Background
The family of this 177-nucleotide sequence from Clostridium saccharoperbutylacetonicum is "Lysine riboswitch aptamer". The match comes from Rfam's covariance-model search (126 bits). The source organism's lineage runs through Bacteria, Bacillota, Eubacteriales, Clostridium and Clostridium saccharoperbutylacetonicum N1-4.
[Rfam]
RNA sequence: AACUAAGAUAGAGGCGCGAAAUUUAAGAGUAAUAUUAUUUUAUUACAAGCAAACCGAUGUAAUACGAAAGGAAAUUUCGCCGAAGUAAAUAGUAAAUUGCUUUAAUACUAUUUGCUGGGCUUAUGUAGAAUAUGCAUAAGACUGUCACAAAUUAUUUUGUGGAGAGCUAUUUUCAAU
Dot-bracket structure: .....((((((....(((((((((........((((((....................)))))).......)))))))))...(((((((((((...........)))))))))))((.((((((((.....)))))))).)).(((((((....)))))))....)))))).....